TPP riboswitch aptamer (THI element): a 101-nucleotide sequence from Vagococcus salmoninarum. The literature on the family includes a 2003 paper in FEBS Lett by Kubodera et al., "Thiamine-regulated gene expression of Aspergillus oryzae thiA requires splicing of the intron containing a riboswitch-like domain in the 5'-UTR". Lineage of the source: Bacteria > Bacillati > Lactobacillales > Enterococcaceae > Vagococcus.
RNA sequence: UUGAAUCACUAGGGGAGCAAUUUUUUGCUGAGAAAGACAUGUCUUGACCCUUUGAACCUGAACUAGGUCAUACUAGCGUAGGGAAGUGGUGGCGAUACGUC
Numbered sequence: 001u002u003g004a005a006u007c008a009c010u011a012g013g014g015g016a017g018c019a020a021u022u023u024u025u026u027g028c029u030g031a032g033a034a035a036g037a038c039a040u041g042u043c044u045u046g047a048c049c050c051u052u053u054g055a056a057c058c059u060g061a062a063c064u065a066g067g068u069c070a071u072a073c074u075a076g077c078g079u080a081g082g083g084a085a086g087u088g089g090u091g092g093c094g095a096u097a098c099g100u101c
Base pairs, nucleotide, nucleotide: 006089007088008087009086010085011051012050013049014048016045017028018027019026020025035044036043037042057082058081059080060079063076064075065074066073